[Rfam]
int-alpA RNA: a 69-nucleotide sequence from Alcaligenaceae bacterium 429. Acidobacteria (1 example), Planctomycetes (1 example), Proteobacteria. The organism belongs to Alcaligenaceae, within Bacteria. Pairs were carried over by alignment from the consensus structure, which is taken from published work. The family's RNA type in Rfam is small RNA. The family has 167 seed sequences and 577 matches in Rfam 15.1.

RNA sequence: CACACGGCUAUCUUGACGGAGAGAAAAGCUGACACCUCACCAGCCUGCCGAAGUGCAAUUUAGUGAGGA
Numbered sequence: 001c002a003c004a005c006g007g008c009u010a011u012c013u014u015g016a017c018g019g020a021g022a023g024a025a026a027a028g029c030u031g032a033c034a035c036c037u038c039a040c041c042a043g044c045c046u047g048c049c050g051a052a053g054u055g056c057a058a059u060u061u062a063g064u065g066a067g068g069a
Stems, first nucleotide, its partner, number of pairs: 001055003005050004011022004028044004036068002